A member of the RNA family "Plant small nucleolar RNA R71" from Arachis hypogaea, 108 nucleotides long. A reference for the family is Brown et al. (2003), "Plant snoRNAs: functional evolution and new modes of gene expression", Trends Plant Sci. Pairs were carried over by alignment from the consensus structure, which was predicted with PFOLD. The match comes from Rfam's covariance-model search (42 bits).
[Rfam]
RNA sequence: AAGCAUGUCAGAAGGACACCUUCUGAUCAAUUGCUUGUAUCUUUCCCAAGCUUCACAGAGGGAUUCACCUUCCUUCUGUCUGAAGGUCUGGACUUCCACUCUAAGCUU
Numbered sequence: 001a002a003g004c005a006u007g008u009c010a011g012a013a014g015g016a017c018a019c020c021u022u023c024u025g026a027u028c029a030a031u032u033g034c035u036u037g038u039a040u041c042u043u044u045c046c047c048a049a050g051c052u053u054c055a056c057a058g059a060g061g062g063a064u065u066c067a068c069c070u071u072c073c074u075u076c077u078g079u080c081u082g083a084a085g086g087u088c089u090g091g092a093c094u095u096c097c098a099c100u101c102u103a104a105g106c107u108u
Stems, first nucleotide, its partner, number of pairs: 001108001003106002006103002058075002061072001